[Rfam]
RNA sequence: AGGGCUUUAUCGAGUUGGUCCCGAAGGAUGAUCCGCUCAUCCCCUAAGGAAAGGGGGUGAUGCCAUGACAGUUUACGAGGCAAUCUCUCUCAUGAUUGCUUUCGGUGCGCUGGUCGAUUAAUACUGUCGGAAAAGAAAAAAGAUAGACCGCCCUUGAGCCCACAACUCAGCGGUUCUAUCCCAUACACUUGAGCCGGCCCCAUGAGGGGCAACUAUUGUACUUCAACCGUAGGUGUUCCUGCACCUGCG
Numbered sequence: 001a002g003g004g005c006u007u008u009a010u011c012g013a014g015u016u017g018g019u020c021c022c023g024a025a026g027g028a029u030g031a032u033c034c035g036c037u038c039a040u041c042c043c044c045u046a047a048g049g050a051a052a053g054g055g056g057g058u059g060a061u062g063c064c065a066u067g068a069c070a071g072u073u074u075a076c077g078a079g080g081c082a083a084u085c086u087c088u089c090u091c092a093u094g095a096u097u098g099c100u101u102u103c104g105g106u107g108c109g110c111u112g113g114u115c116g117a118u119u120a121a122u123a124c125u126g127u128c129g130g131a132a133a134a135g136a137a138a139a140a141a142g143a144u145a146g147a148c149c150g151c152c153c154u155u156g157a158g159c160c161c162a163c164a165a166c167u168c169a170g171c172g173g174u175u176c177u178a179u180c181c182c183a184u185a186c187a188c189u190u191g192a193g194c195c196g197g198c199c200c201c202a203u204g205a206g207g208g209g210c211a212a213c214u215a216u217u218g219u220a221c222u223u224c225a226a227c228c229g230u231a232g233g234u235g236u237u238c239c240u241g242c243a244c245c246u247g248c249g
Base pairs, nucleotide, nucleotide: 001222002221004219005218008215009214016196017195018194019193020158022156023155024154026152027151030148032146037060038059039058041056042055043054044053045052067128068127069126070125071124072123081094082093105119170181197210198209199208200207228249229248230247231246232245233244234243235242236241
RNA: BsrG